[Rfam]
Overview: A member of the RNA family "Small nucleolar RNA SNORA77" from Amphiprion percula, 129 nucleotides long. The organism belongs to Amphiprion, within Eukaryota. Gene Ontology terms of the family: RNA processing and nucleolus. The literature on the family includes a 2006 paper in RNA by Schattner et al., "A computational screen for mammalian pseudouridylation guide H/ACA RNAs". From the family's description: ACA63 (SNORA77) is a member of the H/ACA class of snoRNAs that guide the sites of modification of uridines to pseudouridines. This snoRNA was identified by computational screening and its expression in mouse experimentally verified by Northern blot and primer extension analysis. ACA63 is proposed to guide the pseudouridylation of 18S rRNA U814.
RNA sequence: GCAGACACACUCUGUUCUUUGCUGUGCACUCCAGCCUAGGACUUUUUCUGUCUGCUACAUUAGCAUGCAGAAUGUAACACUUUACUGGCUUUGUAAAAGGCUAGUGUCGGUACUUUCUGCUACAUUUCA
Numbered sequence: 001g002c003a004g005a006c007a008c009a010c011u012c013u014g015u016u017c018u019u020u021g022c023u024g025u026g027c028a029c030u031c032c033a034g035c036c037u038a039g040g041a042c043u044u045u046u047u048c049u050g051u052c053u054g055c056u057a058c059a060u061u062a063g064c065a066u067g068c069a070g071a072a073u074g075u076a077a078c079a080c081u082u083u084a085c086u087g088g089c090u091u092u093g094u095a096a097a098a099g100g101c102u103a104g105u106g107u108c109g110g111u112a113c114u115u116u117c118u119g120c121u122a123c124a125u126u127u128c129a
Base pairs, nucleotide, nucleotide: 001055002054003053004052005051006050014042015041016040017039018038022034023033024032067120068119069118070117071116072115074113075112076111077107078106079105082103